RNA: Plant small nucleolar RNA U3
RNA sequence: ACGACCUUACUUGAACAGGAUCUGUUCUAUAGGCUCGUACCUCUGUAUCCUUGAUUUCUAAGGAGACAGGAAACCAUGUUUGGUGGAUGAACUGUGGCUGCCUGGCUAGAGCGUGAUUAACAGCUCCUUGGGUUGGGUUUCUGGCUCAUUGUGCAGUAGAUGAUCGUUCUUGGCUUGACUUCGGUCCAGUGAAGAUGGCCAGGCAGCUGUCUGACAGACU
Numbered sequence: 001a002c003g004a005c006c007u008u009a010c011u012u013g014a015a016c017a018g019g020a021u022c023u024g025u026u027c028u029a030u031a032g033g034c035u036c037g038u039a040c041c042u043c044u045g046u047a048u049c050c051u052u053g054a055u056u057u058c059u060a061a062g063g064a065g066a067c068a069g070g071a072a073a074c075c076a077u078g079u080u081u082g083g084u085g086g087a088u089g090a091a092c093u094g095u096g097g098c099u100g101c102c103u104g105g106c107u108a109g110a111g112c113g114u115g116a117u118u119a120a121c122a123g124c125u126c127c128u129u130g131g132g133u134u135g136g137g138u139u140u141c142u143g144g145c146u147c148a149u150u151g152u153g154c155a156g157u158a159g160a161u162g163a164u165c166g167u168u169c170u171u172g173g174c175u176u177g178a179c180u181u182c183g184g185u186c187c188a189g190u191g192a193a194g195a196u197g198g199c200c201a202g203g204c205a206g207c208u209g210u211c212u213g214a215c216a217g218a219c220u
Base pairs, nucleotide, nucleotide: 001038002037003035005033006032007031013027014026015025016024017023018022043069044068045067046066048064049063050062051061052060053059078219079218080217081216082215097207098206099205100204101203102202103201104200105199106198107197108196110168111167112166113165120157121156123154124153126151129148130147131146132145133144134143135142136141170193171192173190174189175188177186178185179184